About this RNA:
Glycine riboswitch aptamer: an 86-nucleotide sequence from Flavonifractor sp. An306.
[Rfam]
Nucleotides: 086
Stems, first nucleotide, its partner, number of pairs: 001086005012026004028074003031070002035068001037066001042061006
Number, partner (000 for none) and nucleotide at each position: 001086c002085u003084c004083u005082g006000g007000a008000g009000a010000a011000g012026c013025u014024c015023a016000u017000g018000a019000a020000c021000u022000g023015u024014g025013g026012g027000u028074g029073c030072c031070g032069a033000a034000g035068g036000u037066g038000c039000a040000a041000a042061g043060c044059g045058g046057c047056g048000c049000g050000g051000c052000g053000a054000c055000g056047c057046g058045c059044u060043g061042c062000c063000a064000a065000u066037c067000u068035c069032u070031c071000a072030g073029g074028c075000a076000a077000a078000a079000g080000g081000a082005c083004a084003g085002a086001g